[Rfam]
The family of this 177-nucleotide sequence from Romboutsia sp. CE17 is "Lysine riboswitch aptamer". Pairs were carried over by alignment from the consensus structure, which is taken from published work.

RNA sequence: AAAAAAGAUAGAGGUCGCAGUAUUUAAGAGUAGAUUUGUGGAGGUAAGCACGAAGAAACAAGUCAAAAGGAAAUAUUGCCGAAACAUGUAACUGAUGCUUUAAGGUUAUAGAGUUGGUAUUAUGUAGAAUAUGUAUAAUACUGUCAUAAAUAUUAUUUAUGAAGGGCUAUCAUAAUA
Numbered sequence: 001a002a003a004a005a006a007g008a009u010a011g012a013g014g015u016c017g018c019a020g021u022a023u024u025u026a027a028g029a030g031u032a033g034a035u036u037u038g039u040g041g042a043g044g045u046a047a048g049c050a051c052g053a054a055g056a057a058a059c060a061a062g063u064c065a066a067a068a069g070g071a072a073a074u075a076u077u078g079c080c081g082a083a084a085c086a087u088g089u090a091a092c093u094g095a096u097g098c099u100u101u102a103a104g105g106u107u108a109u110a111g112a113g114u115u116g117g118u119a120u121u122a123u124g125u126a127g128a129a130u131a132u133g134u135a136u137a138a139u140a141c142u143g144u145c146a147u148a149a150a151u152a153u154u155a156u157u158u159a160u161g162a163a164g165g166g167c168u169a170u171c172a173u174a175a176u177a
Stems, first nucleotide, its partner, number of pairs: 007171005017079009033064007083115003087110007116142011144162007

Lineage of the source: Bacteria > Bacillati > Peptostreptococcales > Peptostreptococcaceae > Romboutsia.